[Rfam]
RNA sequence: AGGGGUAUAGCCAAGCGGUAAGGCAGGAGGUUUUGAUCCUCCCAUGCGCAGGUUCGAAUCCUGCUACCCCUG
Numbered sequence: 001a002g003g004g005g006u007a008u009a010g011c012c013a014a015g016c017g018g019u020a021a022g023g024c025a026g027g028a029g030g031u032u033u034u035g036a037u038c039c040u041c042c043c044a045u046g047c048g049c050a051g052g053u054u055c056g057a058a059u060c061c062u063g064c065u066a067c068c069c070c071u072g
Base pairs, nucleotide, nucleotide: 001071002070003069004068005067006066007065010024011023012022026042027041028040029039030038048064049063050062051061052060

The record is a 72-nucleotide sequence from Marinobacterium sp. LSUCC0821, which matches "tRNA" in Rfam.
Lineage of the source: Bacteria > Pseudomonadati > Gammaproteobacteria > Oceanospirillaceae > Marinobacterium.
Pairs were carried over by alignment from the consensus structure, which is taken from published work.